[Rfam]
RNA sequence: CUGCACUAACCGGGGAGUCAGCGGUUCCUUAUCACCUGAAAUCCGCUAUAUGCAGGGGUUAAUUCCGUUUCAGAGGAUUCGUCUUUUUGCCGUCUGCCUCGUAUGUAAAGCUGAGAGAGAUCGGUCCCGCGCAACAGACCGCCGUGAACCAUGUCAGGCGGGGAACCGAGCAGCAUUAAGCGGCACAGUCUGUGUGCCGCGGCCAACCGGUUUUGAGCCGAGCAUACGGGUUACGGGCAAAGGGCGUCUUCGAGGAAGCGGUGUGCAG
Numbered sequence: 001c002u003g004c005a006c007u008a009a010c011c012g013g014g015g016a017g018u019c020a021g022c023g024g025u026u027c028c029u030u031a032u033c034a035c036c037u038g039a040a041a042u043c044c045g046c047u048a049u050a051u052g053c054a055g056g057g058g059u060u061a062a063u064u065c066c067g068u069u070u071c072a073g074a075g076g077a078u079u080c081g082u083c084u085u086u087u088u089g090c091c092g093u094c095u096g097c098c099u100c101g102u103a104u105g106u107a108a109a110g111c112u113g114a115g116a117g118a119g120a121u122c123g124g125u126c127c128c129g130c131g132c133a134a135c136a137g138a139c140c141g142c143c144g145u146g147a148a149c150c151a152u153g154u155c156a157g158g159c160g161g162g163g164a165a166c167c168g169a170g171c172a173g174c175a176u177u178a179a180g181c182g183g184c185a186c187a188g189u190c191u192g193u194g195u196g197c198c199g200c201g202g203c204c205a206a207c208c209g210g211u212u213u214u215g216a217g218c219c220g221a222g223c224a225u226a227c228g229g230g231u232u233a234c235g236g237g238c239a240a241a242g243g244g245c246g247u248c249u250u251c252g253a254g255g256a257a258g259c260g261g262u263g264u265g266c267a268g
Stems, first nucleotide, its partner, number of pairs: 001268006008060004012030008035056004040051001065261007073251006083244009095233002098230006110218002117214009127202005132194002135192005141184005151176004159168003
This 268-nucleotide sequence from Ruminococcaceae bacterium AM28-23LB belongs to the Rfam family "Bacterial large signal recognition particle RNA". The signal recognition particle (SRP) is a universally conserved ribonucleoprotein involved in the co-translational targeting of proteins to membranes. The organism belongs to Oscillospiraceae, within Bacteria. The literature on the family includes a 2003 paper in Nucleic Acids Res by Rosenblad et al., "SRPDB: Signal Recognition Particle Database". The base pairs follow the family's consensus structure, which is taken from published work. By type it is a non-coding RNA gene.